[Rfam]
RNA sequence: AACUGAGAUAGAGGCGCGAAACUUAAAAGUAAUAUUAUGGAGGUAAGCUCAAUGAAGUAAUAUGAAAGGAAGUUUCGCCGAAGUGAAUAGUUAAUAGCUUUAAUACUAUUCGCUGGGCUUAUAUAGAAUAUAUAUAGGACUGUCACAUUUUUGUGGAGAGCUAUUUUCAAU
Dot-bracket structure: .....((((((....(((((((((.......(((((((..................)))))))......)))))))))...((((((((((.............))))))))))((.((((((((.....)))))))).)).(((((....)))))....)))))).....
Lysine riboswitch aptamer: a 171-nucleotide sequence from Romboutsia lituseburensis. It scores 129 bits against the family's covariance model.